About this RNA
This 97-nucleotide RNA sequence from Citrobacter freundii belongs to the Rfam family "isrI Hfq binding RNA". NCBI's taxonomy places the organism under Bacteria, Gammaproteobacteria, Enterobacteriaceae, Citrobacter, Citrobacter freundii complex. It is annotated as a small RNA.
RNA sequence: AUCACAGGUGUUUGGCAUCUGACCAGAGGCGAUGACAUUUGCCAUAACGGUGAAGCAGAGGUGUUAGAAGGUCCUCUCUCUCCACCAUUGUAAACAA
Numbered sequence: 001a002u003c004a005c006a007g008g009u010g011u012u013u014g015g016c017a018u019c020u021g022a023c024c025a026g027a028g029g030c031g032a033u034g035a036c037a038u039u040u041g042c043c044a045u046a047a048c049g050g051u052g053a054a055g056c057a058g059a060g061g062u063g064u065u066a067g068a069a070g071g072u073c074c075u076c077u078c079u080c081u082c083c084a085c086c087a088u089u090g091u092a093a094a095c096a097a
Stems, first nucleotide, its partner, number of pairs: 007039006016031001018029003041051003
It scores 70 bits against the family's covariance model. Pairs were carried over by alignment from the consensus structure, which was predicted with WAR.